[Rfam]
The record is a 68-nucleotide sequence from Callithrix jacchus, which matches "Small nucleolar RNA SNORD56" in Rfam. On this family, see Galardi et al., Mol Cell Biol 2002: "Purified box C/D snoRNPs are able to reproduce site-specific 2'-O-methylation of target RNA in vitro". By type it is a C/D-box small nucleolar RNA. The base pairs follow the family's consensus structure, which was predicted with PFOLD. Rfam 15.1 lists 796 matches to the family in 432 species.

RNA sequence: CUAAAAAGAUGGCAGUACUUUCCACCAACAGCAGUUCUAGAGAGAGUUGACACUUUGGGUCUGAGUGA
Dot-bracket structure: .((....(.((...........)).).......................................)).